Shown here is a 112-nucleotide sequence from Grimontia hollisae, a member of the family "Gammaprotebacteria rimP leader". The family's consensus secondary structure is taken from published work. By type it is a cis-regulatory leader. NCBI's taxonomy places the organism under Bacteria, Pseudomonadati, Vibrionaceae, Grimontia, Grimontia hollisae.
RNA sequence: AUGAGAAGUCGUGGCAAUAGGGUCCAGUUACAUUAAACCCCGACGUUCGGGGUUUUUUGUUAUCUAAAGAUGACCAUUCGAAUGGAUAACUGGGCUUUUAGGCCCUUUUUUU
Numbered sequence: 001a002u003g004a005g006a007a008g009u010c011g012u013g014g015c016a017a018u019a020g021g022g023u024c025c026a027g028u029u030a031c032a033u034u035a036a037a038c039c040c041c042g043a044c045g046u047u048c049g050g051g052g053u054u055u056u057u058u059g060u061u062a063u064c065u066a067a068a069g070a071u072g073a074c075c076a077u078u079c080g081a082a083u084g085g086a087u088a089a090c091u092g093g094g095c096u097u098u099u100a101g102g103c104c105c106u107u108u109u110u111u112u
Stems, first nucleotide, its partner, number of pairs: 035055008092105004